Shown here is a 410-nucleotide RNA sequence from Synechococcus sp. PCC 7335, a member of the family "Bacterial RNase P class A". Rfam classes the family as a ribozyme. It scores 238 bits against the family's covariance model.
RNA sequence: AGAGCUGGCUCAGUGGUUGCGGGGCAAGAGUAGAGUUUUAAAAAUCUCUGCUUCUGGCUCUGAGGAAAGUCCGGGCUCCCGAAAAGUCGAACUUGCUGGGUAAUCCCCAGUGCGGGUGACCGUGAGGAGAGUGCCACAGAAACAUACCGCCGAUGGGAAGGAAACUUUUACAGGUAAGGGUGCAAGGGUGCGGUAAGAGCGCACCGGCAGCAUCGAGAGGUGCUGGCCAGGUAAACCCCGGUUGGGUGCAAGGCCGAAGGAGCAACGGUUGGCUUUUUACCGGCUCCGCUUUAAGUGUGCCGCUAGAGGCGUUUGGUAACAGGCGUCCCAGAUAGAUAACCACCUCUUAGAAGUGAGCUUUUGUCUUGCUUCUAUCGAGAACAGAACCCGGCUUAGGUCCAGCUCUAGAU
Number, nucleotide and partner (000 for none) at each position: 001a406002g405003a404004g403005c402006u401007g400008g399009c000010u397011c396012a000013g343014u342015g341016g340017u339018u338019g000020c062021g061022g060023g059024g058025c057026a000027a055028g054029a053030g052031u000032a000033g000034a000035g000036u000037u000038u000039u000040a000041a000042a000043a000044a000045u000046c000047u000048c000049u000050g000051c000052u030053u029054c028055u027056g000057g025058c024059u023060c022061u021062g020063a000064g000065g000066a000067a394068a393069g392070u000071c391072c390073g389074g388075g387076c248077u000078c246079c245080c000081g000082a000083a000084a000085a000086g000087u000088c000089g000090a243091a242092c241093u000094u240095g239096c110097u109098g108099g107100g106101u000102a000103a000104u000105c000106c100107c099108c098109a097110g096111u125112g123113c122114g121115g120116g000117u000118g000119a000120c115121c114122g113123u112124g000125a111126g238127g237128a000129g000130a000131g236132u235133g232134c231135c230136a000137c000138a000139g000140a000141a000142a000143c000144a000145u000146a000147c179148c178149g175150c174151c173152g000153a000154u170155g169156g168157g167158a000159a000160g000161g000162a000163a000164a000165c000166u000167u157168u156169u155170a154171c000172a000173g151174g150175u149176a000177a000178g148179g147180g000181u000182g000183c000184a000185a000186g000187g205188g204189u203190g202191c201192g200193g000194u000195a000196a000197g000198a000199g000200c192201g191202c190203a189204c188205c187206g000207g227208c225209a224210g223211c222212a221213u220214c219215g000216a000217g000218a000219g214220g213221u212222g211223c210224u209225g208226g000227c207228c000229a000230g135231g134232u133233a000234a000235a132236c131237c127238c126239c095240g094241g092242u091243u090244g000245g079246g078247u000248g076249c000250a000251a000252g301253g300254c299255c000256g000257a000258a000259g000260g000261a000262g292263c000264a290265a000266c288267g287268g000269u000270u000271g285272g284273c283274u282275u000276u000277u000278u000279a000280c000281c000282g274283g273284c272285u271286c000287c267288g266289c000290u264291u000292u262293a000294a000295g000296u000297g000298u000299g254300c253301c252302g000303c000304u000305a000306g000307a000308g327309g326310c325311g324312u323313u322314u321315g320316g000317u000318a000319a000320c315321a314322g313323g312324c311325g310326u309327c308328c000329c000330a000331g000332a000333u000334a000335g000336a000337u000338a018339a017340c016341c015342a014343c013344c000345u000346c000347u000348u000349a000350g000351a000352a000353g000354u000355g000356a000357g000358c000359u000360u000361u000362u000363g000364u000365c000366u000367u000368g000369c000370u000371u000372c000373u000374a000375u000376c000377g000378a000379g000380a000381a000382c000383a000384g000385a000386a000387c075388c074389c073390g072391g071392c069393u068394u067395a000396g011397g010398u000399c008400c007401a006402g005403c004404u003405c002406u001407a000408g000409a000410u000